[Rfam]
RNA sequence: AUCUUCACGGUAACGCCCGUCCCGGUAUCAAAUCCCGCCGCUGCCAGCCAGUCGCCUUUAAGGUGUAGGCUGGGGCAUUGCGAGUAGCAGGUGGAGAUGUUGGUUUAUGGCUCGCGUGAGAGAUCCCG
Numbered sequence: 001a002u003c004u005u006c007a008c009g010g011u012a013a014c015g016c017c018c019g020u021c022c023c024g025g026u027a028u029c030a031a032a033u034c035c036c037g038c039c040g041c042u043g044c045c046a047g048c049c050a051g052u053c054g055c056c057u058u059u060a061a062g063g064u065g066u067a068g069g070c071u072g073g074g075g076c077a078u079u080g081c082g083a084g085u086a087g088c089a090g091g092u093g094g095a096g097a098u099g100u101u102g103g104u105u106u107a108u109g110g111c112u113c114g115c116g117u118g119a120g121a122g123a124u125c126c127c128g
Stems, first nucleotide, its partner, number of pairs: 029080003034075003049072004053065004106121001108119001

The record is a 128-nucleotide RNA sequence from Salmonella enterica, which matches "isrA Hfq binding RNA" in Rfam. The match comes from Rfam's covariance-model search (90 bits). The source organism's lineage runs through Bacteria, Pseudomonadati, Gammaproteobacteria, Enterobacterales and Salmonella enterica. It is annotated as a small RNA. Rfam 15.1 lists 34 matches to the family in 25 species.